[Rfam]
RNA sequence: AUACUUACGUGGAUGGGGUAUUUACGGGUGAUCAUGAAUGCCUGUGACAUAGACUAGAGACUUUCAUUGUACUUUGAAGGGGCUAUGGUCUACCUAUGCCCAAGUAGUAGAGUGGACGUCAUAAUUUGUGGCAGGGGGGUUCGCGUCCGCGGCCCUUA
Numbered sequence: 001a002u003a004c005u006u007a008c009g010u011g012g013a014u015g016g017g018g019u020a021u022u023u024a025c026g027g028g029u030g031a032u033c034a035u036g037a038a039u040g041c042c043u044g045u046g047a048c049a050u051a052g053a054c055u056a057g058a059g060a061c062u063u064u065c066a067u068u069g070u071a072c073u074u075u076g077a078a079g080g081g082g083c084u085a086u087g088g089u090c091u092a093c094c095u096a097u098g099c100c101c102a103a104g105u106a107g108u109a110g111a112g113u114g115g116a117c118g119u120c121a122u123a124a125u126u127u128g129u130g131g132c133a134g135g136g137g138g139g140u141u142c143g144c145g146u147c148c149g150c151g152g153c154c155c156u157u158a
Stems, first nucleotide, its partner, number of pairs: 012120004016050001018048002025044005051091003055088001058084002061081003064077002094115003097111001099107001135157005142151003
Shown here is a 158-nucleotide RNA sequence from Dendrobium catenatum, a member of the family "U1 spliceosomal RNA". From the family's description: U1 is a small nuclear RNA (snRNA) component of the spliceosome (involved in pre-mRNA splicing). Pairs were carried over by alignment from the consensus structure, which is taken from published work. Rfam classes the family as a spliceosomal small nuclear RNA.